[Rfam]
RNA sequence: AAGUAUCUCCGAGUCUCUCCUGUGACGGGGGAGAUAGGAGUAACGGCUGGUUGGCACAGCCAUCGACGGUCUUGUUUGACACGGAAACUGGUGCGUUCACACCUCAAGAACACAUAACGUCGUAAACCACAAUAUCCCACCGCGGGAAUCCUCGCCCUUCAGGGCGGGAG
Numbered sequence: 001a002a003g004u005a006u007c008u009c010c011g012a013g014u015c016u017c018u019c020c021u022g023u024g025a026c027g028g029g030g031g032a033g034a035u036a037g038g039a040g041u042a043a044c045g046g047c048u049g050g051u052u053g054g055c056a057c058a059g060c061c062a063u064c065g066a067c068g069g070u071c072u073u074g075u076u077u078g079a080c081a082c083g084g085a086a087a088c089u090g091g092u093g094c095g096u097u098c099a100c101a102c103c104u105c106a107a108g109a110a111c112a113c114a115u116a117a118c119g120u121c122g123u124a125a126a127c128c129a130c131a132a133u134a135u136c137c138c139a140c141c142g143c144g145g146g147a148a149u150c151c152u153c154g155c156c157c158u159u160c161a162g163g164g165c166g167g168g169a170g
Base pairs, nucleotide, nucleotide: 003044004043007040008039009038010037013035014034015033016031017030018029019028020027045061046060047059048058049057064122065121066120067119068118073112074111075110076109077108090103091102092101093100135147136146137145138144149170151168152167153166154165155164156163157162

Rfam assigns this 170-nucleotide sequence from Halostagnicola larsenii to the family "Sense overlapping transcript RNA 0042 (sot)". It is associated with IS1341-type transposase (tnpB) genes, at the 3'-end in H. salinarum NRC-1. The tetraloop structural motif may be functional. It scores 155 bits against the family's covariance model. For this family Rfam cites "Sense overlapping transcripts in IS1341-type transposase genes are functional non-coding RNAs in archaea" (Gomes-Filho et al., RNA Biol, 2015). Rfam classes the family as a small RNA.